[Rfam]
Nucleotides: 185
Stems, first nucleotide, its partner, number of pairs: 008039007016031003065079004071171005080104008089096002107133009136165008147156003
Number, partner (000 for none) and nucleotide at each position: 001000u002000c003000c004000u005000g006000c007000g008039c009038a010037c011036g012035g013034g014033g015000c016031a017030u018029a019000c020000u021000c022000c023000a024000c025000u026000u027000c028000u029018u030017a031016u032000u033014u034013c035012c036011c037010g038009u039008g040000a041000c042000g043000c044000u045000a046000a047000u048000a049000a050000a051000g052000g053000a054000g055000g056000g057000a058000u059000a060000c061000c062000c063000a064000u065079c066078c067077g068076c069000a070000a071171g072170g073169c074168u075167u076068g077067c078066g079065g080104u081103g082102c083101g084100g085099c086098a087097g088000u089096g090095u091000g092000g093000a094000g095090a096089c097087c098086u099085g100084c101083u102082g103081u104080a105000a106000u107133g108132c109131g110130a111129c112128c113127g114126u115125c116000a117000c118000a119000u120000c121000a122000u123000c124000g125115g126114g127113c128112g129111g130110u131109u132108g133107c134000g135000a136165g137164u138163u139162g140161g141160g142159c143158g144000a145000u146000g147156a148155g149154c150000g151000a152000a153000c154149g155148c156147u157000g158143c159142g160141c161140c162139u163138g164137a165136u166000g167075a168074a169073g170072c171071c172000a173000a174000a175000a176000c177000a178000c179000u180000a181000u182000g183000g184000c185000a
A member of the RNA family "malK-I RNA", 185 nucleotides long. By type it is a cis-regulatory element. Pairs were carried over by alignment from the consensus structure, which is taken from published work.